[Rfam]
Nucleotides: 134
Base pairs, nucleotide, nucleotide: 008085009084010083011082012081013026014025015024016023017022027056028055029054030053031052032051033050035048036047037046038045039044057080058079059078060077061076062075063074102132103131104130105129107128108127109126110125111124113123114122115121
Number, partner (000 for none) and nucleotide at each position: 001000a002000a003000a004000a005000a006000g007000g008085g009084c010083u011082u012081c013026u014025g015024c016023u017022g018000u019000g020000c021000u022017u023016a024015g025014c026013a027056c028055a029054g030053g031052c032051g033050g034000a035048g036047u037046g038045g039044u040000g041000a042000u043000u044039a045038u046037c047036a048035c049000g050033c051032c052031g053030c054029c055028u056027g057080c058079g059078g060077a061076a062075u063074c064000g065000c066000c067000a068000u069000c070000a071000a072000g073000a074063g075062a076061u077060u078059u079058c080057g081012g082011a083010a084009g085008c086000a087000c088000a089000a090000u091000u092000u093000u094000u095000a096000u097000a098000a099000c100000u101000g102132g103131g104130a105129c106000u107128g108127c109126c110125g111124g112000u113123g114122a115121u116000c117000a118000c119000a120000u121115g122114u123113c124111c125110c126109g127108g128107c129105g130104u131103c132102c133000c134000g
This 134-nucleotide RNA from Takifugu rubripes belongs to the Rfam family "U11 spliceosomal RNA". The literature on the family includes a 1988 paper in Proc Natl Acad Sci U S A by Montzka and Steitz, "Additional low-abundance human small nuclear ribonucleoproteins: U11, U12, etc". NCBI's taxonomy places the organism under Eukaryota, Opisthokonta, Chordata, Tetraodontoidei, Takifugu. The family's consensus secondary structure is taken from published work. By type it is a spliceosomal small nuclear RNA. The sequence is in the family's curated seed alignment.